Rfam assigns this 227-nucleotide part of an RNA from Thioalkalivibrio paradoxus to the family "Bacterial large subunit ribosomal RNA". It scores 2936 bits against the family's covariance model. The family's consensus secondary structure is taken from published work. Taxonomically the source falls in Thioalkalivibrio paradoxus (Bacteria, Pseudomonadati, Ectothiorhodospiraceae, Thioalkalivibrio).
[Rfam]
RNA sequence: GACUUACUUUCAGUGGCAAGGUUAACCGUAUAGGGGAGCCGUAGGGAAACCGAGUCUUAAUAGGGCGAUCAGUCGCUGGGAGUAGACCCGAAACCGGGCGAUCUAUCCAUGGCCAGGGUGAAGGUGGGGUAACACCUACUGGAGGCCCGAACCCACUAAUGUUGAAAAAUUAGGGGAUGAGCUGUGGAUCGGAGUGAAAGGCUAAUCAAGCUCGGAAAUAGCUGGUU
Numbered sequence: 001g002a003c004u005u006a007c008u009u010u011c012a013g014u015g016g017c018a019a020g021g022u023u024a025a026c027c028g029u030a031u032a033g034g035g036g037a038g039c040c041g042u043a044g045g046g047a048a049a050c051c052g053a054g055u056c057u058u059a060a061u062a063g064g065g066c067g068a069u070c071a072g073u074c075g076c077u078g079g080g081a082g083u084a085g086a087c088c089c090g091a092a093a094c095c096g097g098g099c100g101a102u103c104u105a106u107c108c109a110u111g112g113c114c115a116g117g118g119u120g121a122a123g124g125u126g127g128g129g130u131a132a133c134a135c136c137u138a139c140u141g142g143a144g145g146c147c148c149g150a151a152c153c154c155a156c157u158a159a160u161g162u163u164g165a166a167a168a169a170u171u172a173g174g175g176g177a178u179g180a181g182c183u184g185u186g187g188a189u190c191g192g193a194g195u196g197a198a199a200g201g202c203u204a205a206u207c208a209a210g211c212u213c214g215g216a217a218a219u220a221g222c223u224g225g226u227u
Stems, first nucleotide, its partner, number of pairs: 005084013020040004026034002044051002054066004087225002090222001094215006103191001105189009114179001116148004123140006152176003156173005193203003
Dot-bracket structure: ....(((((((((((((..((((..((.....))..))))...((....))..((((.....)))).....)))))))))))))..((.(...((((((...(.((((((((((.((((...((((((......))))))....))))...(((.(((((........))))))))..).))))))))).).(((.....)))......))))))......).))..